[Rfam]
Description:
Rfam assigns this 105-nucleotide sequence from Variibacter gotjawalensis to the family "Glycine riboswitch aptamer". It scores 34 bits against the family's covariance model. The source organism's lineage runs through Bacteria, Alphaproteobacteria, Hyphomicrobiales, Nitrobacteraceae and Variibacter. This family represents the bacterial glycine riboswitch. The literature on the family includes a 2004 paper in Science by Mandal et al., "A glycine-dependent riboswitch that uses cooperative binding to control gene expression".
RNA sequence: CUCUGGAAAGCAGCGGCGCCGCUUAGGCGCAGCUCACCGAAGGAGUAAGCGGCGUCUCGUCCUCCACGCGAGACACGCGAAAUCUCUCAGGUACCGCAGACAGAG
Numbered sequence: 001c002u003c004u005g006g007a008a009a010g011c012a013g014c015g016g017c018g019c020c021g022c023u024u025a026g027g028c029g030c031a032g033c034u035c036a037c038c039g040a041a042g043g044a045g046u047a048a049g050c051g052g053c054g055u056c057u058c059g060u061c062c063u064c065c066a067c068g069c070g071a072g073a074c075a076c077g078c079g080a081a082a083u084c085u086c087u088c089a090g091g092u093a094c095c096g097c098a099g100a101c102a103g104a105g
Base pairs, nucleotide, nucleotide: 001105002104003103004102005101012034013033014032036092037091038090039088040087043086044085045084